The record is a 76-nucleotide RNA sequence from Crocodylus porosus, which matches "Mammalian CPEB3 ribozyme" in Rfam.
Rfam describes the family as follows. The mammalian CPEB3 ribozyme is a self cleaving RNA located in the second intron of the CPEB3 gene which belongs to a family of genes regulating messenger RNA polyadenylation.
Pairs were carried over by alignment from the consensus structure, which is taken from published work.
It scores 39 bits against the family's covariance model.
The source organism's lineage runs through Eukaryota, Eumetazoa, Amniota, Sauria and Crocodylus.
[Rfam]
RNA sequence: GGUUGCAAGUUUGAAGUCAUAGCAGAAGUGCUCAUGAUGCAACCUGUCAGAUUUCAAUGAAUCUAUAAAUUCUGCU
Numbered sequence: 001g002g003u004u005g006c007a008a009g010u011u012u013g014a015a016g017u018c019a020u021a022g023c024a025g026a027a028g029u030g031c032u033c034a035u036g037a038u039g040c041a042a043c044c045u046g047u048c049a050g051a052u053u054u055c056a057a058u059g060a061a062u063c064u065a066u067a068a069a070u071u072c073u074g075c076u
Base pairs, nucleotide, nucleotide: 013044016043017042021076022075023074024073025072026071027070028040029039030038049064050063051062052061053060054059